[Rfam]
RNA sequence: UCGUUCAUGCAGGGAGAAUCCGGUCACGUGCCGGUGCCGAAGGAGCAACCGCCCCGGUAAACUCUCAGGCGCCAGGACCUGGUGGACAAC
Numbered sequence: 001u002c003g004u005u006c007a008u009g010c011a012g013g014g015a016g017a018a019u020c021c022g023g024u025c026a027c028g029u030g031c032c033g034g035u036g037c038c039g040a041a042g043g044a045g046c047a048a049c050c051g052c053c054c055c056g057g058u059a060a061a062c063u064c065u066c067a068g069g070c071g072c073c074a075g076g077a078c079c080u081g082g083u084g085g086a087c088a089a090c
Base pairs, nucleotide, nucleotide: 006085010081011080012079013078020034021033022032023031036070037069038068039066040065043064044063045062049057050056
A member of the RNA family "Glycine riboswitch aptamer" from Nioella halotolerans, 90 nucleotides long. Clan: Glycine riboswitch clan. A search with the family's covariance model found it, with a score of 59 bits. Pairs were carried over by alignment from the consensus structure.